Nucleotides: 099
Base pairs, nucleotide, nucleotide: 001099002098003097004096046059048054
Number, partner (000 for none) and nucleotide at each position: 001099g002098g003097a004096c005000u006000a007000u008000g009000a010000g011000g012000a013000u014000u015000g016000u017000u018000u019000g020000u021000g022000a023000u024000a025000g026000g027000u028000c029000u030000c031000g032000u033000u034000c035000g036000u037000c038000g039000u040000a041000a042000u043000g044000g045000c046059a047000u048054g049000u050000a051000u052000c053000g054048u055000g056000c057000c058000u059046u060000g061000c062000c063000g064000a065000c066000c067000a068000u069000u070000c071000u072000g073000a074000u075000a076000u077000a078000u079000c080000a081000c082000c083000a084000c085000c086000c087000a088000u089000g090000a091000a092000c093000u094000g095000a096004g097003u098002c099001c